Bacterial RNase P class A: a 352-nucleotide RNA from Aeriscardovia aeriphila. It is annotated as a ribozyme.
RNA sequence: UGAGAUCCUUCGGUGAUCGCGGAGGCUGUGUAUCAGCCUAUGAGGAACUUCCGGGCUCCGCAGAGCACGACGGCAGGUAACGCCUGCCCAGGGAAACCUGAGAGAUAGCGCAGCAGAGAACAGACCGCCUCGCAAGAGGUAAGGGUGAAACGGCGGUGUAAGAGACCACCGGGUUGUUGGUAACAACAACCGCAUGGCAAGCCUCGUCGGGAGAAAGACCAAAUAGAAGGCAAUGGGGCUGCUCGUCCCGUCUUCGGGUAGGUCGAUGGAGCUUAUUCGUGAGAGUAAGCCUAGAUGGAUGAUCAUCCGCGCUUCGGCACGACAGAACCCGGGGUAUGAGGGAUCUCAACAG
Numbered sequence: 001u002g003a004g005a006u007c008c009u010u011c012g013g014u015g016a017u018c019g020c021g022g023a024g025g026c027u028g029u030g031u032a033u034c035a036g037c038c039u040a041u042g043a044g045g046a047a048c049u050u051c052c053g054g055g056c057u058c059c060g061c062a063g064a065g066c067a068c069g070a071c072g073g074c075a076g077g078u079a080a081c082g083c084c085u086g087c088c089c090a091g092g093g094a095a096a097c098c099u100g101a102g103a104g105a106u107a108g109c110g111c112a113g114c115a116g117a118g119a120a121c122a123g124a125c126c127g128c129c130u131c132g133c134a135a136g137a138g139g140u141a142a143g144g145g146u147g148a149a150a151c152g153g154c155g156g157u158g159u160a161a162g163a164g165a166c167c168a169c170c171g172g173g174u175u176g177u178u179g180g181u182a183a184c185a186a187c188a189a190c191c192g193c194a195u196g197g198c199a200a201g202c203c204u205c206g207u208c209g210g211g212a213g214a215a216a217g218a219c220c221a222a223a224u225a226g227a228a229g230g231c232a233a234u235g236g237g238g239c240u241g242c243u244c245g246u247c248c249c250g251u252c253u254u255c256g257g258g259u260a261g262g263u264c265g266a267u268g269g270a271g272c273u274u275a276u277u278c279g280u281g282a283g284a285g286u287a288a289g290c291c292u293a294g295a296u297g298g299a300u301g302a303u304c305a306u307c308c309g310c311g312c313u314u315c316g317g318c319a320c321g322a323c324a325g326a327a328c329c330c331g332g333g334g335u336a337u338g339a340g341g342g343a344u345c346u347c348a349a350c351a352g
Base pairs, nucleotide, nucleotide: 001348002347003346004345005344006343007342008341009340010339012307013306014305015304016303017302018301020042021041023039024038025037026036027035028034047335048334049333051332052331053330054329055328056213057212058211059210063244064243065242066241068209069208070207071206072205073087074086075085076084077083088102089100090099091098092097103204104203108202109201110198111197125144126143127140128139129138130137131136152170153169155167156166157165171193172191173190174189175188176187177186178185179184217264218263219262220261226255227254228253229252230251231250235249236248237247238246239245271290272289273288274287275286276285277284278283